[Rfam]
RNA sequence: GCCGCAUUGGCAGUGUGGUUAGCUGGUUGUUUAGAUCACGACAACAGCCAGUAACGCCACUGCCUCUGUGUU
Numbered sequence: 001g002c003c004g005c006a007u008u009g010g011c012a013g014u015g016u017g018g019u020u021a022g023c024u025g026g027u028u029g030u031u032u033a034g035a036u037c038a039c040g041a042c043a044a045c046a047g048c049c050a051g052u053a054a055c056g057c058c059a060c061u062g063c064c065u066c067u068g069u070g071u072u
Base pairs, nucleotide, nucleotide: 003070004069005068006067009064010063012061013060014059015058018055019054020053021052024050025049026048027047028046029045030044031043
RNA: mir-34 microRNA precursor family
Organism: Vanessa tameamea